RNA sequence: AUAUUCUAUUUAAGCGCUCCAAAGACAGCAGGUGACUUAUGGUGUAAAUCCUGCCGAGGAUGGCAUCAUAUUUUUGAUUGCUUACAACCUUCGUGUCUUUGUGCACGGAGGUUUUCUUUAUGAGCGU
Numbered sequence: 001a002u003a004u005u006c007u008a009u010u011u012a013a014g015c016g017c018u019c020c021a022a023a024g025a026c027a028g029c030a031g032g033u034g035a036c037u038u039a040u041g042g043u044g045u046a047a048a049u050c051c052u053g054c055c056g057a058g059g060a061u062g063g064c065a066u067c068a069u070a071u072u073u074u075u076g077a078u079u080g081c082u083u084a085c086a087a088c089c090u091u092c093g094u095g096u097c098u099u100u101g102u103g104c105a106c107g108g109a110g111g112u113u114u115u116c117u118u119u120a121u122g123a124g125c126g127u
Stems, first nucleotide, its partner, number of pairs: 028054005035043003087112010